[Rfam]
RNA sequence: UCCACGGUGACGUGGAAUCUGUGAAGGAAGCGAGCGGCAAACCCCCGGUCUGAGGAACACGAACUUCAUAUUAGGCUAAGUAUCAUUGGGUGAGUCUGCUAGACAAGAUAAAGCCCCUUCUGCCGAAGGUGAUACGGAGUAAAUGAAGCAGAUAGGUGGAGGGAAAGAUUGCACUC
Numbered sequence: 001u002c003c004a005c006g007g008u009g010a011c012g013u014g015g016a017a018u019c020u021g022u023g024a025a026g027g028a029a030g031c032g033a034g035c036g037g038c039a040a041a042c043c044c045c046c047g048g049u050c051u052g053a054g055g056a057a058c059a060c061g062a063a064c065u066u067c068a069u070a071u072u073a074g075g076c077u078a079a080g081u082a083u084c085a086u087u088g089g090g091u092g093a094g095u096c097u098g099c100u101a102g103a104c105a106a107g108a109u110a111a112a113g114c115c116c117c118u119u120c121u122g123c124c125g126a127a128g129g130u131g132a133u134a135c136g137g138a139g140u141a142a143a144u145g146a147a148g149c150a151g152a153u154a155g156g157u158g159g160a161g162g163g164a165a166a167g168a169u170u171g172c173a174c175u176c
Stems, first nucleotide, its partner, number of pairs: 001016006030176001032174001034172001038167001042162002045159003048153005064148006075140003080135006088116004094109004
RNA: Group II catalytic intron D1-D4-3